[Rfam]
RNA: Bacillaceae-1 RNA
Organism: Lentibacillus populi
RNA sequence: ACGAGGGGAUGUUCGACUAAGAACGCCACGUCCGCAUGUCUUCGUCGAACUGACCUACAUCCUGUAGG
Dot-bracket structure: ..........(((((((.......(.((........)).)...)))))))...(((((.....)))))